Source information:
This 79-nucleotide RNA from Setaria viridis belongs to the Rfam family "Small nucleolar RNA R160". Rfam classes the family as a C/D-box small nucleolar RNA. The match comes from Rfam's covariance-model search (73 bits). snoR160 is a C/D box small nucleolar RNA, which acts as a methylation guide for 25S ribosomal RNA in plants. snoR160 has been alternatively named snoZ270 in rice. The pairing is the family consensus, mapped onto this sequence.
RNA sequence: AGCGAUAUGAGGAGAUUGAAACAUCUGAAAGUUUUCAUGUGGAUAACACACAUCUGGUCUUCAAAGUUCUCUGAUCGCU
Dot-bracket structure: (((((.....................................................................)))))